mir-133 microRNA precursor family: a 73-nucleotide sequence from Acanthaster planci. The family's consensus secondary structure was predicted with PFOLD. About the family: mir-133 was first experimentally characterised in mouse and homologues have since been discovered in several other species. The mature sequence is excised from the 3' arm of the hairpin. Its family is annotated with miRNA-mediated post-transcriptional gene silencing and RISC complex in the Gene Ontology. On this family, see Lagos-Quintana et al., Curr Biol 2002: "Identification of tissue-specific microRNAs from mouse".
RNA sequence: GUGCUUUAGCUGGUAAACGGGAACCAAAUCGUGGCCUUGCGUGGAUUUGGUCCCCUUCAACCAGCCGUAGCAC
Numbered sequence: 001g002u003g004c005u006u007u008a009g010c011u012g013g014u015a016a017a018c019g020g021g022a023a024c025c026a027a028a029u030c031g032u033g034g035c036c037u038u039g040c041g042u043g044g045a046u047u048u049g050g051u052c053c054c055c056u057u058c059a060a061c062c063a064g065c066c067g068u069a070g071c072a073c
Base pairs, nucleotide, nucleotide: 003071004070005069009065010064011063012062013061014060017057020053021052022051024050025049026048027047028046029045030044